Eukaryotic large subunit ribosomal RNA: a 393-nucleotide part of an RNA from Mucor lusitanicus. On this family, see Yusupov et al., Science 2001: "Crystal structure of the ribosome at 5.5 A resolution". It scores 3267 bits against the family's covariance model. Pairs were carried over by alignment from the consensus structure, which is taken from published work.

RNA sequence: GGUAUUGGUAUCGUAACAGUAAUUGAAGUUAGUACGAGAGGAACCCUUCAUUCAGAUAAUUGGUAUUUGCGGCUGGUUGAAAGGCCAAUGCCGCGAAGCUACCAUCUGCUGGAUAAUGGCUGAACGCCUCUAAGUCAGAAUCCAUGCUGAAAACGAUACUACUGUGUUUUGAUUGUACCAGAUGAGUACUAAUAAAGCUUCGGCUUGAAAACCUUACUUGUGAGCUAGGUUUGGUAGCGGAAAUGCUGCUAGAUCUACUUGCUAAUGAUAAUGCUAAUACAUCAAAAUGAUAAAUCGCAUGCAGACGACAUGAAAUGGACGGGGUAUUGUAAGUACUAGAGUAGCCUUUGUUGCUACGAUGUACUGAGAUUAAGCCUUUGUCAUUGAAUUUGU
Numbered sequence: 001g002g003u004a005u006u007g008g009u010a011u012c013g014u015a016a017c018a019g020u021a022a023u024u025g026a027a028g029u030u031a032g033u034a035c036g037a038g039a040g041g042a043a044c045c046c047u048u049c050a051u052u053c054a055g056a057u058a059a060u061u062g063g064u065a066u067u068u069g070c071g072g073c074u075g076g077u078u079g080a081a082a083g084g085c086c087a088a089u090g091c092c093g094c095g096a097a098g099c100u101a102c103c104a105u106c107u108g109c110u111g112g113a114u115a116a117u118g119g120c121u122g123a124a125c126g127c128c129u130c131u132a133a134g135u136c137a138g139a140a141u142c143c144a145u146g147c148u149g150a151a152a153a154c155g156a157u158a159c160u161a162c163u164g165u166g167u168u169u170u171g172a173u174u175g176u177a178c179c180a181g182a183u184g185a186g187u188a189c190u191a192a193u194a195a196a197g198c199u200u201c202g203g204c205u206u207g208a209a210a211a212c213c214u215u216a217c218u219u220g221u222g223a224g225c226u227a228g229g230u231u232u233g234g235u236a237g238c239g240g241a242a243a244u245g246c247u248g249c250u251a252g253a254u255c256u257a258c259u260u261g262c263u264a265a266u267g268a269u270a271a272u273g274c275u276a277a278u279a280c281a282u283c284a285a286a287a288u289g290a291u292a293a294a295u296c297g298c299a300u301g302c303a304g305a306c307g308a309c310a311u312g313a314a315a316u317g318g319a320c321g322g323g324g325u326a327u328u329g330u331a332a333g334u335a336c337u338a339g340a341g342u343a344g345c346c347u348u349u350g351u352u353g354c355u356a357c358g359a360u361g362u363a364c365u366g367a368g369a370u371u372a373a374g375c376c377u378u379u380g381u382c383a384u385u386g387a388a389u390u391u392g393u
Base pairs, nucleotide, nucleotide: 007160008159009158010157011156012155013154014153017149018148019147020146022052024050025049026048027047028046053108054107055106056105057104061101062100063099068095069094070093071092072091074087075086076085077084078083110144111143112142117137118136119135120134121133166288167287168286169285170284171283172282292391293390294389295388298312299311300310301309318382319381320380321379322377323376324375326370327369333364334363335362336361338360341357342356343355344354345353